[Rfam]
RNA: TPP riboswitch aptamer (THI element)
Organism: Chloroflexia bacterium SDU3-3
Nucleotides: 112
Base pairs, nucleotide, nucleotide: 007099008098009097010096011062012061013060014059016056017032018031019030020029021028040055041054042053043052068093069092070091074087075086076085077084
Number, partner (000 for none) and nucleotide at each position: 001000u002000g003000g004000c005000g006000a007099c008098g009097c010096u011062a012061g013060g014059g015000g016056a017032g018031c019030c020029g021028g022000g023000a024000g025000a026000g027000c028021c029020c030019g031018g032017c033000u034000g035000a036000g037000a038000u039000u040055g041054c042053g043052g044000c045000c046000c047000c048000a049000a050000u051000g052043c053042c054041g055040c056016u057000a058000a059014c060013c061012c062011u063000c064000c065000g066000a067000a068093c069092c070091u071000g072000a073000u074087c075086u076085g077084g078000g079000u080000c081000a082000u083000u084077c085076c086075a087074g088000c089000g090000a091070a092069g093068g094000g095000a096010a097009g098008c099007g100000a101000u102000a103000g104000g105000c106000u107000g108000c109000a110000c111000a112000u